[Rfam]
Description
The family of this 119-nucleotide RNA from Atopococcus tabaci is "FMN riboswitch aptamer (RFN element)". The literature on the family includes a 2002 paper in Nucleic Acids Res by Vitreschak et al., "Regulation of riboflavin biosynthesis and transport genes in bacteria by transcriptional and translational attenuation". The family's consensus secondary structure is taken from published work. Taxonomically the source falls in Atopococcus (Bacteria, Bacillota, Bacilli, Carnobacteriaceae).

RNA sequence: AAUCAUCUUCAGGGCAGGGUGUAAUUCCCGACCGGUAGUAAAGUCUACGACCCAGCGGUGCUGGUUGAUUUGGUGCGAUUCCAAAACCGAUUGUAUAGUCAAGUAUAAAGAAGAGUAGA
Numbered sequence: 001a002a003u004c005a006u007c008u009u010c011a012g013g014g015c016a017g018g019g020u021g022u023a024a025u026u027c028c029c030g031a032c033c034g035g036u037a038g039u040a041a042a043g044u045c046u047a048c049g050a051c052c053c054a055g056c057g058g059u060g061c062u063g064g065u066u067g068a069u070u071u072g073g074u075g076c077g078a079u080u081c082c083a084a085a086a087c088c089g090a091u092u093g094u095a096u097a098g099u100c101a102a103g104u105a106u107a108a109a110g111a112a113g114a115g116u117a118g119a
Stems, first nucleotide, its partner, number of pairs: 003117001006114005017029003031099002033089002035048004043087002052064002069085005091102003